[Rfam]
RNA: Streptomyces-metH RNA
RNA sequence: CCCGUCCGGCCCGUGGACGCCCCUGACCGUACGGCCCUGCCCCGGGCUACCCUGGCCGGGUGCGCCUUCCAUGGGAAGCGCAAAGCCGACAGCCGUCGCACUCCAGGGAGCAUCUUCCAUG
Numbered sequence: 001c002c003c004g005u006c007c008g009g010c011c012c013g014u015g016g017a018c019g020c021c022c023c024u025g026a027c028c029g030u031a032c033g034g035c036c037c038u039g040c041c042c043c044g045g046g047c048u049a050c051c052c053u054g055g056c057c058g059g060g061u062g063c064g065c066c067u068u069c070c071a072u073g074g075g076a077a078g079c080g081c082a083a084a085g086c087c088g089a090c091a092g093c094c095g096u097c098g099c100a101c102u103c104c105a106g107g108g109a110g111c112a113u114c115u116u117c118c119a120u121g
Stems, first nucleotide, its partner, number of pairs: 061082004066078004085099002088097003